RNA: M-box riboswitch aptamer (ykoK leader)
RNA sequence: GCAGCACUUCGUUAGGCGAGGCUCCUGCACGAACACAGGCCACUGAUCUGACGACGUCGAGAGACGCCCAAGGUUAGGACAGGUCUCCCCGGAUUAAGGGGUCACCCAAAGUGGCUUCCCGCCCGUUCGAUGGUGGGACACGUCGUGCAGUGUCGAAGCUCUUACGUGGAAGUGGCGG
Numbered sequence: 001g002c003a004g005c006a007c008u009u010c011g012u013u014a015g016g017c018g019a020g021g022c023u024c025c026u027g028c029a030c031g032a033a034c035a036c037a038g039g040c041c042a043c044u045g046a047u048c049u050g051a052c053g054a055c056g057u058c059g060a061g062a063g064a065c066g067c068c069c070a071a072g073g074u075u076a077g078g079a080c081a082g083g084u085c086u087c088c089c090c091g092g093a094u095u096a097a098g099g100g101g102u103c104a105c106c107c108a109a110a111g112u113g114g115c116u117u118c119c120c121g122c123c124c125g126u127u128c129g130a131u132g133g134u135g136g137g138a139c140a141c142g143u144c145g146u147g148c149a150g151u152g153u154c155g156a157a158g159c160u161c162u163u164a165c166g167u168g169g170a171a172g173u174g175g176c177g178g
Stems, first nucleotide, its partner, number of pairs: 005174006011165002013097001015160003020154003025150008039115005045075005055066004082106003088100003117138007
Dot-bracket structure: ....(((((((([.(((..(((..((((((((......(((((.(((((.....((((....))))....)))))......(((...(((......])))...)))....))))).(((((((........)))))))....)))))))).)))...)))...))...))))))....